RNA sequence: AAAUUAAUUAGAGGUUGCAAAAAUUAAAAAGUCAAGCGAAGUGGUGAGCACGUUGAAACUUGAGGGCGGAAUUUUUUGCCGAAAGCUGAUCAUUCACGCCUUUCAGCUUGGGACGUUGGGUUAAAUCCCGCGGACUGUCUUGGUUUUUCCAAGUUGCGCUAAUGUAAAC
Numbered sequence: 001a002a003a004u005u006a007a008u009u010a011g012a013g014g015u016u017g018c019a020a021a022a023a024u025u026a027a028a029a030a031g032u033c034a035a036g037c038g039a040a041g042u043g044g045u046g047a048g049c050a051c052g053u054u055g056a057a058a059c060u061u062g063a064g065g066g067c068g069g070a071a072u073u074u075u076u077u078g079c080c081g082a083a084a085g086c087u088g089a090u091c092a093u094u095c096a097c098g099c100c101u102u103u104c105a106g107c108u109u110g111g112g113a114c115g116u117u118g119g120g121u122u123a124a125a126u127c128c129c130g131c132g133g134a135c136u137g138u139c140u141u142g143g144u145u146u147u148u149c150c151a152a153g154u155u156g157c158g159c160u161a162a163u164g165u166a167a168a169c
Base pairs, nucleotide, nucleotide: 007163008162009161010160011159017079018078019077020076021075022074023072024071025070032063033062034061035060036059083109084108085107086106087105088104089103110136111135114132115131116130118128119127120126139153140152141151142150143149
The family of this 169-nucleotide sequence from Lactococcus hircilactis is "Lysine riboswitch aptamer". A search with the family's covariance model found it, with a score of 53 bits. Taxonomically the source falls in Lactococcus (Bacteria, Bacillati, Bacillota, Streptococcaceae).